RNA sequence: CUUAACUCACAAGAAGGGAUGAUGGAUGGUCGAUGAUUUCUUAAUUCUAUUUUAUACGUCAAAAUGUAUACGCAUUUUUACGACAAAAUAGGAUGAGUCUGACCAUUUAUAACCCUUUACGAUCUGUAAAGCUUAUUUAUGUUACCAUACUGUCCUUCUGCCAUUUUGGCGGGAGGAUUUUUUU
Numbered sequence: 001c002u003u004a005a006c007u008c009a010c011a012a013g014a015a016g017g018g019a020u021g022a023u024g025g026a027u028g029g030u031c032g033a034u035g036a037u038u039u040c041u042u043a044a045u046u047c048u049a050u051u052u053u054a055u056a057c058g059u060c061a062a063a064a065u066g067u068a069u070a071c072g073c074a075u076u077u078u079u080a081c082g083a084c085a086a087a088a089u090a091g092g093a094u095g096a097g098u099c100u101g102a103c104c105a106u107u108u109a110u111a112a113c114c115c116u117u118u119a120c121g122a123u124c125u126g127u128a129a130a131g132c133u134u135a136u137u138u139a140u141g142u143u144a145c146c147a148u149a150c151u152g153u154c155c156u157u158c159u160g161c162c163a164u165u166u167u168g169g170c171g172g173g174a175g176g177a178u179u180u181u182u183u184u
Stems, first nucleotide, its partner, number of pairs: 019108001023105003029099001031097001042096001044094010058081002061078006115131007152178010